This 80-nucleotide RNA sequence from Parnassius apollo belongs to the Rfam family "Mammalian CPEB3 ribozyme".
It scores 52 bits against the family's covariance model.
RNA sequence: UUAAAAAUAAUGGGGGUCAUUGUAGAAGCGUGCUCGUCGCGACCCCUGCCAGCCCCCCUUUUCAGGGCUGCAAUUCUACA
Numbered sequence: 001u002u003a004a005a006a007a008u009a010a011u012g013g014g015g016g017u018c019a020u021u022g023u024a025g026a027a028g029c030g031u032g033c034u035c036g037u038c039g040c041g042a043c044c045c046c047u048g049c050c051a052g053c054c055c056c057c058c059u060u061u062u063c064a065g066g067g068c069u070g071c072a073a074u075u076c077u078a079c080a
Stems, first nucleotide, its partner, number of pairs: 013046006021080007028040003050070006
The source organism's lineage runs through Eukaryota, Neoptera, Heteroneura, Parnassini and Parnassius. The mammalian CPEB3 ribozyme is a self cleaving RNA located in the second intron of the CPEB3 gene which belongs to a family of genes regulating messenger RNA polyadenylation. This ribozyme is highly conserved and found only in mammals. The CPEB3 ribozyme is structurally and biochemically related to the human hepatitis delta virus (HDV) ribozyme and the HDV ribozyme is proposed to have arisen from the human transcriptome. There is currently only one other known self cleaving ribozyme in mammals, the CoTC motif. The family's consensus secondary structure is taken from published work.